[Rfam]
RNA: c-di-GMP-I riboswitch aptamer
Organism: Sporomusaceae bacterium FL31
RNA sequence: AAAUUACAUAGGCAAACUUAUCGAAAGAUAAGGACGCAAAGCCAUGGGUCUAAAAACAUUUGUUUAUGAUUGCCAGGCUGCCGCU
Dot-bracket structure: ...........((...((((((....))))))...))..((((.((((((....(((....)))...)))..)))))))......